[Rfam]
RNA: MIR474 microRNA precursor family
RNA sequence: UUCAAAAGCUAUUGGGUGUGACUGAGCAGCCGGAUCCAACACUAUUGGAUCUUGUCAUGUAGACCCUAAGCGAUUGGGUUUUGUUGGGCAGCAGAUUCCAAUGUUGUUGAAUCCUGCCAAGCUAGACUUAAUAACACUUUUUGACU
Numbered sequence: 001u002u003c004a005a006a007a008g009c010u011a012u013u014g015g016g017u018g019u020g021a022c023u024g025a026g027c028a029g030c031c032g033g034a035u036c037c038a039a040c041a042c043u044a045u046u047g048g049a050u051c052u053u054g055u056c057a058u059g060u061a062g063a064c065c066c067u068a069a070g071c072g073a074u075u076g077g078g079u080u081u082u083g084u085u086g087g088g089c090a091g092c093a094g095a096u097u098c099c100a101a102u103g104u105u106g107u108u109g110a111a112u113c114c115u116g117c118c119a120a121g122c123u124a125g126a127c128u129u130a131a132u133a134a135c136a137c138u139u140u141u142u143g144a145c146u
Stems, first nucleotide, its partner, number of pairs: 001144002004141005011132007019124002022121002026117004032052008